The record is a 68-nucleotide sequence from Octadecabacter temperatus, which matches "L2-Alphaproteobacteria ribosomal protein leader" in Rfam. The sequence is in the family's curated seed alignment. By type it is a cis-regulatory leader. The literature on the family includes a 2020 paper in BMC Microbiol by Eckert and Weinberg, "Discovery of 20 novel ribosomal leader candidates in bacteria and archaea".

RNA sequence: GGGCACCUACGGGGGCCUAUAAACAUCAGGGCCACGCGAGUGGUCCGCCAAGCAAACGGAAGUAGCAA
Numbered sequence: 001g002g003g004c005a006c007c008u009a010c011g012g013g014g015g016c017c018u019a020u021a022a023a024c025a026u027c028a029g030g031g032c033c034a035c036g037c038g039a040g041u042g043g044u045c046c047g048c049c050a051a052g053c054a055a056a057c058g059g060a061a062g063u064a065g066c067a068a
Stems, first nucleotide, its partner, number of pairs: 001018004006014003029046007